[Rfam]
RNA sequence: CCCGGGGUUUGCACCCCGGGCUACGCGCUGCCGUCCCUACGGGACU
Numbered sequence: 001c002c003c004g005g006g007g008u009u010u011g012c013a014c015c016c017c018g019g020g021c022u023a024c025g026c027g028c029u030g031c032c033g034u035c036c037c038u039a040c041g042g043g044a045c046u
Base pairs, nucleotide, nucleotide: 001020002019003018004017005016006015007014008013033045034044035043036042037041
Notes: The family of this 46-nucleotide RNA from Planctomycetes bacterium MalM25 is "Acido-Lenti-1 RNA". Pairs were carried over by alignment from the consensus structure, which is taken from published work. The family's RNA type in Rfam is small RNA. The source organism's lineage runs through Bacteria, Pseudomonadati and Planctomycetota. The match comes from Rfam's covariance-model search (47 bits).